[Rfam]
Shown here is a 104-nucleotide RNA from Paenibacillus wynnii, a member of the family "Purine riboswitch aptamer". The organism belongs to Paenibacillus, within Bacteria. Rfam links the family to the GO term purine nucleobase biosynthetic process. The match comes from Rfam's covariance-model search (79 bits).
RNA sequence: GGACAACAUUCAUAAAUAACUCAUAUAAUCUUGGGAAUAUGGCCCAUAAGUUUCUACCGGAUAACCACUGAAAUUAUCCGACUAUGAGUGAAAUAGCGCAUCUA
Numbered sequence: 001g002g003a004c005a006a007c008a009u010u011c012a013u014a015a016a017u018a019a020c021u022c023a024u025a026u027a028a029u030c031u032u033g034g035g036a037a038u039a040u041g042g043c044c045c046a047u048a049a050g051u052u053u054c055u056a057c058c059g060g061a062u063a064a065c066c067a068c069u070g071a072a073a074u075u076a077u078c079c080g081a082c083u084a085u086g087a088g089u090g091a092a093a094u095a096g097c098g099c100a101u102c103u104a
Stems, first nucleotide, its partner, number of pairs: 019089007029049001032046004058080007